[Rfam]
RNA sequence: UGGCAUUGCUCCACCUUCUUGGGGUCGCGCUGUGUCCGCCUCCAGGAUAGGAGCGAAUGCUACAGAAACGGCAGGGGAGUCCAAAGGGCUGCGCUCCUCCCGUGGCUCAGCCUUAUUUCAGACCUGCGACAAAUUU
Number, nucleotide and partner (000 for none) at each position: 001u000002g000003g060004c059005a058006u057007u000008g000009c000010u051011c050012c000013a000014c000015c000016u000017u047018c046019u045020u044021g043022g042023g040024g039025u038026c000027g000028c000029g000030c000031u000032g000033u000034g000035u000036c000037c000038g025039c024040c023041u000042c022043c021044a020045g019046g018047a017048u000049a000050g011051g010052a000053g000054c000055g000056a000057a006058u005059g004060c003061u000062a000063c000064a136065g135066a134067a000068a000069c000070g000071g127072c126073a125074g124075g123076g000077g000078a000079g000080u000081c000082c000083a000084a000085a114086g113087g112088g111089c110090u109091g108092c000093g106094c105095u000096c000097c102098u000099c000100c000101c000102g097103u000104g000105g094106c093107u000108c091109a090110g089111c088112c087113u086114u085115a000116u000117u000118u000119c000120a000121g000122a000123c075124c074125u073126g072127c071128g000129a000130c000131a000132a000133a000134u066135u065136u064
Small nucleolar RNA SNORA14: a 136-nucleotide RNA from Ochotona princeps. The family's RNA type in Rfam is H/ACA-box small nucleolar RNA. Rfam 15.1 lists 848 matches to the family in 633 species.